[Rfam]
Nucleotides: 086
Stems, first nucleotide, its partner, number of pairs: 001085007011025003028044005062078005
Number, partner (000 for none) and nucleotide at each position: 001085g002084g003083a004082g005081a006080g007079g008000u009000g010000u011025c012024c013023g014000a015000g016000c017000g018000g019000u020000u021000u022000a023013u024012g025011g026000u027000g028044c029043c030042g031041g032040u033000c034000u035000u036000g037000a038000a039000a040032a041031c042030c043029g044028g045000u046000g047000u048000g049000g050000u051000u052000a053000g054000u055000a056000g057000c058000c059000a060000c061000c062078g063077u064076g065075g066074g067000u068000u069000c070000g071000a072000a073000u074066c075065c076064c077063a078062c079007c080006u081005u082004c083003u084002c085001c086000g
This 86-nucleotide RNA from Eubacterium uniforme belongs to the Rfam family "tRNA". The base pairs follow the family's consensus structure, which is taken from published work. Lineage of the source: Bacteria > Bacillota > Clostridia > Eubacteriaceae > Eubacterium. It scores 52 bits against the family's covariance model.